[Rfam]
RNA: NoRC associated RNA, pRNA
Organism: Sapayoa aenigma
RNA sequence: CAUUGGGGGCACACUGAGGGCACUGCCAGGGCCCGGGGGUACCAGGGGGGCCCCGUGCCCAGCGCAGCUCCCCCUGGUACGUGUUG
Numbered sequence: 001c002a003u004u005g006g007g008g009g010c011a012c013a014c015u016g017a018g019g020g021c022a023c024u025g026c027c028a029g030g031g032c033c034c035g036g037g038g039g040u041a042c043c044a045g046g047g048g049g050g051c052c053c054c055g056u057g058c059c060c061a062g063c064g065c066a067g068c069u070c071c072c073c074c075u076g077g078u079a080c081g082u083g084u085u086g
Stems, first nucleotide, its partner, number of pairs: 004083001008080001011078002017075004024066003027062001030059003034055003